The record is a 105-nucleotide RNA sequence from Brevibacillus brevis, which matches "S10-Clostridia ribosomal protein leader" in Rfam. The base pairs follow the family's consensus structure, which is taken from published work. The family's RNA type in Rfam is cis-regulatory leader.
[Rfam]
RNA sequence: GACUUGCGAUGAUGUGGGAGGUUGCUGACACACCCGGCCCCUUUGCCAUGACCGGGGUGCAGGAUAUUUCCACGGAGAAAUGUCUGUUUAAAAAAUGGGCGAAAA
Numbered sequence: 001g002a003c004u005u006g007c008g009a010u011g012a013u014g015u016g017g018g019a020g021g022u023u024g025c026u027g028a029c030a031c032a033c034c035c036g037g038c039c040c041c042u043u044u045g046c047c048a049u050g051a052c053c054g055g056g057g058u059g060c061a062g063g064a065u066a067u068u069u070c071c072a073c074g075g076a077g078a079a080a081u082g083u084c085u086g087u088u089u090a091a092a093a094a095a096u097g098g099g100c101g102a103a104a105a
Base pairs, nucleotide, nucleotide: 014073015072016071018070019069020068021067025062026061027060081104083102084101086100087099088098089097